This 92-nucleotide sequence belongs to the Rfam family "Selenocysteine transfer RNA". A search with the family's covariance model found it, with a score of 79 bits. Gene Ontology term of the family: triplet codon-amino acid adaptor activity. The family has 109 seed sequences and 4,211 matches in Rfam 15.1. The family's consensus secondary structure is taken from published work.
[Rfam]
RNA sequence: GGAGGCGUAAAGGCGUCUGGUGGCCCUCCCGGUCUUCAAAACCGGUGGAGCCGAGUAUCUCGGUUCGGCGGGUUCGAUUCCCGUCCGCCUCC
Dot-bracket structure: (((((((.(..((.(((....))).)).(((((.......)))))..(((((.........)))))..((((.......))))).)))))))
Numbered sequence: 001g002g003a004g005g006c007g008u009a010a011a012g013g014c015g016u017c018u019g020g021u022g023g024c025c026c027u028c029c030c031g032g033u034c035u036u037c038a039a040a041a042c043c044g045g046u047g048g049a050g051c052c053g054a055g056u057a058u059c060u061c062g063g064u065u066c067g068g069c070g071g072g073u074u075c076g077a078u079u080c081c082c083g084u085c086c087g088c089c090u091c092c
Stems, first nucleotide, its partner, number of pairs: 001092007009084001012027002015024003029045005048066005069083004